Rfam assigns this 61-nucleotide RNA to the family "RAGATH-18 RNA". The base pairs follow the family's consensus structure, which is taken from published work.
[Rfam]
RNA sequence: CUCUUGGACUGCUAUAUAAACUAGAGUAGCUUAGGCAAAAUAGGGUGGGAUGAAUAGAGAA
Numbered sequence: 001c002u003c004u005u006g007g008a009c010u011g012c013u014a015u016a017u018a019a020a021c022u023a024g025a026g027u028a029g030c031u032u033a034g035g036c037a038a039a040a041u042a043g044g045g046u047g048g049g050a051u052g053a054a055u056a057g058a059g060a061a
Stems, first nucleotide, its partner, number of pairs: 001059004009048005021043003029036002

It is one of the family's seed sequences.